[Rfam]
RNA sequence: UAUCGGCAUAAUCACUCUAGCUUCUGUGCCUGUGUCUCAGGAUAUGGUGCAGUAGCCGUGGCAUAAGCCACCAGGGUACAGGAAGAAAUGACUGUGCCUCCCGAACUGGAAAGGUGUAUAUGGCUUCACAAC
Numbered sequence: 001u002a003u004c005g006g007c008a009u010a011a012u013c014a015c016u017c018u019a020g021c022u023u024c025u026g027u028g029c030c031u032g033u034g035u036c037u038c039a040g041g042a043u044a045u046g047g048u049g050c051a052g053u054a055g056c057c058g059u060g061g062c063a064u065a066a067g068c069c070a071c072c073a074g075g076g077u078a079c080a081g082g083a084a085g086a087a088a089u090g091a092c093u094g095u096g097c098c099u100c101c102c103g104a105a106c107u108g109g110a111a112a113g114g115u116g117u118a119u120a121u122g123g124c125u126u127c128a129c130a131a132c
Stems, first nucleotide, its partner, number of pairs: 013116003017113001020056003024052007034043003058071005074099008084089001100109002
RNA: Molybdenum/Tungsten riboswitch aptamer (Moco RNA motif)
Organism: Klebsiella sp. RIT-PI-d